[Rfam]
RNA: permuted transfer-messenger RNA
Organism: Asticcacaulis sp. AC402
RNA sequence: GGGGAUAAACGCCCACGUAAUAAGCGAACUGGACCCGGGUGCGAUUCCCGGCGGCUCCACCAUUUUCCUUCCGGAAGUCUAUGGCCGGACGUUUAUGGGGCCGAUCAGCAUCGACAGGCGUGUAAAGGUGAAGCCUUCCCUCGGUAUGAGCCUCCGCGAUCGGCUCAUUUUCUAACUGCGAACGAUAACUUCGCUCAGGAGCAUGCCCUUGCUGCGUAA
Dot-bracket structure: (((((........(((........((..(((...(((((.......)))))(((((((......................................)))))))...........))).)).......)))......)))))(((.........)))...............................................................